[Rfam]
Rfam assigns this 91-nucleotide sequence from Lactobacillus helveticus to the family "RNA anti-toxin A". The source organism's lineage runs through Bacteria, Bacillati, Bacillota, Lactobacillus and Lactobacillus helveticus. Rfam links the family to the GO terms negative regulation of translation and mRNA binding. Pairs were carried over by alignment from the consensus structure, which was predicted with RNAalifold.

RNA sequence: UAAUGUAGACAGAAAAAGGGAAGCCCCGCUAGAACAGGACUUCCCAUGUAGAGCCGUUAAAGACGGUGGCAGAUUUUAACGAUAUUUAAUA
Numbered sequence: 001u002a003a004u005g006u007a008g009a010c011a012g013a014a015a016a017a018g019g020g021a022a023g024c025c026c027c028g029c030u031a032g033a034a035c036a037g038g039a040c041u042u043c044c045c046a047u048g049u050a051g052a053g054c055c056g057u058u059a060a061a062g063a064c065g066g067u068g069g070c071a072g073a074u075u076u077u078a079a080c081g082a083u084a085u086u087u088a089a090u091a
Stems, first nucleotide, its partner, number of pairs: 025038002028035001053067006
Dot-bracket structure: ........................((.(......).))..............((((((...))))))........................